[Rfam]
RNA sequence: UACCACUUGGUAAAAAUUAGGCUGACAAAGGCGUGGGUUAGUAGGCAACGAAAAUCUGCGAGGCUACAAGAAA
Numbered sequence: 001u002a003c004c005a006c007u008u009g010g011u012a013a014a015a016a017u018u019a020g021g022c023u024g025a026c027a028a029a030g031g032c033g034u035g036g037g038u039u040a041g042u043a044g045g046c047a048a049c050g051a052a053a054a055u056c057u058g059c060g061a062g063g064c065u066a067c068a069a070g071a072a073a
Base pairs, nucleotide, nucleotide: 001012002011003010004009020065021064022063023062032060033059034058035057036056037055038054044049

RT-18 RNA: a 73-nucleotide sequence. The base pairs follow the family's consensus structure, which is taken from published work. It is annotated as a small RNA.